Rfam assigns this 359-nucleotide sequence from Acidaminobacter hydrogenoformans to the family "Bacterial RNase P class A".

[Rfam]
RNA sequence: UGAGUAAACCAGACAAUCGCGUGCUUUAACGGGCACGAGGAAAGUCCGAGCUCCAUAGAGCAGGGUGCUGGGUAACCCCCAGUGGAGGCGACUCCAAGGAAAGUGCAAUAGAAAGAUACCGCCACAGUAGAUAAGCUUCGGCUCCUGCUGCGGUAAGGGUGGAAUGGUGAGGUAAGAGCUCACCAGCGUUCAGGUGACUGGACGGCUCUGUAAACCCCGCCUGGAGCAAGACCAAGUACGGGAUGAGAAGGGAGUUGCUCGCUCCCCCCGGUUGGUAGGUCGCUUGAGCCCUUCGGCAACGACGGGCCUAGAUAGAUGAUUGUCUAAUACAGAACUCGGCUUACAGGUUUGCUCACAUU
Numbered sequence: 001u002g003a004g005u006a007a008a009c010c011a012g013a014c015a016a017u018c019g020c021g022u023g024c025u026u027u028a029a030c031g032g033g034c035a036c037g038a039g040g041a042a043a044g045u046c047c048g049a050g051c052u053c054c055a056u057a058g059a060g061c062a063g064g065g066u067g068c069u070g071g072g073u074a075a076c077c078c079c080c081a082g083u084g085g086a087g088g089c090g091a092c093u094c095c096a097a098g099g100a101a102a103g104u105g106c107a108a109u110a111g112a113a114a115g116a117u118a119c120c121g122c123c124a125c126a127g128u129a130g131a132u133a134a135g136c137u138u139c140g141g142c143u144c145c146u147g148c149u150g151c152g153g154u155a156a157g158g159g160u161g162g163a164a165u166g167g168u169g170a171g172g173u174a175a176g177a178g179c180u181c182a183c184c185a186g187c188g189u190u191c192a193g194g195u196g197a198c199u200g201g202a203c204g205g206c207u208c209u210g211u212a213a214a215c216c217c218c219g220c221c222u223g224g225a226g227c228a229a230g231a232c233c234a235a236g237u238a239c240g241g242g243a244u245g246a247g248a249a250g251g252g253a254g255u256u257g258c259u260c261g262c263u264c265c266c267c268c269c270g271g272u273u274g275g276u277a278g279g280u281c282g283c284u285u286g287a288g289c290c291c292u293u294c295g296g297c298a299a300c301g302a303c304g305g306g307c308c309u310a311g312a313u314a315g316a317u318g319a320u321u322g323u324c325u326a327a328u329a330c331a332g333a334a335c336u337c338g339g340c341u342u343a344c345a346g347g348u349u350u351g352c353u354c355a356c357a358u359u
Stems, first nucleotide, its partner, number of pairs: 001355010012324007020037007042342003046339005051226004058260004063222005068082005083097001084095004098217002103215002105211003119158002121154003125150005166184006186206001187204007230281004240269003251265005288307004293302003
The base pairs follow the family's consensus structure, which is taken from published work. A search with the family's covariance model found it, with a score of 297 bits. Its family is annotated with dimeric ribonuclease P complex, tRNA processing and ribonuclease P activity in the Gene Ontology. From the family's description: Ribonuclease P (RNase P) is a ubiquitous endoribonuclease, found in archaea, bacteria and eukarya as well as chloroplasts and mitochondria.